Rfam assigns this 89-nucleotide RNA sequence from Hibiscus trionum to the family "Small nucleolar RNA snoR109". A search with the family's covariance model found it, with a score of 78 bits.
RNA sequence: UAGCUAUAGUGAAAUCAAAUCGGCUGUGAAGUUAACUGGCCGGUUAUCGUCCUCCGUCGAUUAAUCUGCUUACCGAACUUCAUAUAUUU
Numbered sequence: 001u002a003g004c005u006a007u008a009g010u011g012a013a014a015u016c017a018a019a020u021c022g023g024c025u026g027u028g029a030a031g032u033u034a035a036c037u038g039g040c041c042g043g044u045u046a047u048c049g050u051c052c053u054c055c056g057u058c059g060a061u062u063a064a065u066c067u068g069c070u071u072a073c074c075g076a077a078c079u080u081c082a083u084a085u086a087u088u089u
Base pairs, nucleotide, nucleotide: 026083027082028081029080030079031078032077033076038070039069040068042066043065044064045063046061047060048059049058
The family's consensus secondary structure was predicted with WAR. For this family Rfam cites "Experimental RNomics: identification of 140 candidates for small non-messenger RNAs in the plant Arabidopsis thaliana" (Marker et al., Curr Biol, 2002).